[Rfam]
RNA sequence: UUUGUUCCCCAGCUUUUGGCUUUGAUCAAGUGUAGUAUCUGUUCUUUUGAUUUUGAUAAAUCAAACGUGGCUUCGGUCACGCUUUAUAUCAAAUCAUUCUUUGGCUUGGGGAGGCGGCGUGUGCAGCUUGCUGUGCUCGCCGUCUCGCGUGCUGCGCGUCCUUUGCACUAACUGGGACGAAUGCUGCGGCGCACCUACU
Number, nucleotide and partner (000 for none) at each position: 001u000002u000003u000004g000005u000006u000007c000008c024009c000010c000011a021012g020013c019014u018015u000016u000017u000018g014019g013020c012021u011022u000023u000024g008025a000026u000027c000028a000029a000030g000031u000032g000033u000034a000035g000036u000037a000038u000039c000040u000041g000042u000043u000044c000045u000046u065047u064048u063049g062050a061051u060052u000053u000054u000055g000056a000057u000058a000059a000060a051061u050062c049063a048064a047065a046066c081067g080068u079069g078070g077071c076072u000073u000074c000075g000076g071077u070078c069079a068080c067081g066082c000083u000084u000085u000086a000087u000088a000089u000090c000091a000092a000093a000094u000095c000096a000097u000098u000099c000100u000101u000102u000103g000104g000105c000106u000107u000108g000109g000110g000111g146112a145113g144114g143115c142116g141117g140118c139119g000120u000121g000122u000123g134124c133125a132126g131127c000128u000129u000130g000131c126132u125133g124134u123135g000136c000137u000138c000139g118140c117141c116142g115143u114144c113145u112146c111147g000148c000149g192150u191151g190152c189153u188154g187155c000156g184157c183158g182159u181160c000161c179162u000163u000164u000165g000166c000167a000168c000169u000170a000171a000172c000173u000174g000175g000176g000177a000178c000179g161180a000181a159182u158183g157184c156185u000186g000187c154188g153189g152190c151191g150192c149193a000194c000195c000196u000197a000198c000199u000
This 199-nucleotide RNA belongs to the Rfam family "U2 spliceosomal RNA". It is one of the family's seed sequences. The literature on the family includes a 1990 paper in Nucleic Acids Res by Thomas et al., "The spliceosomal snRNAs of Caenorhabditis elegans".